[Rfam]
RNA sequence: AGAUCUCAAAUUAGGCCAAGGCAAAAGUGCUUAUGGCAUGGCCUGUCCGAUUCCAAUGAAUCUGUGAACUCCGUU
Numbered sequence: 001a002g003a004u005c006u007c008a009a010a011u012u013a014g015g016c017c018a019a020g021g022c023a024a025a026a027g028u029g030c031u032u033a034u035g036g037c038a039u040g041g042c043c044u045g046u047c048c049g050a051u052u053c054c055a056a057u058g059a060a061u062c063u064g065u066g067a068a069c070u071c072c073g074u075u
Stems, first nucleotide, its partner, number of pairs: 014043004020075003025070001027039003047064001049062005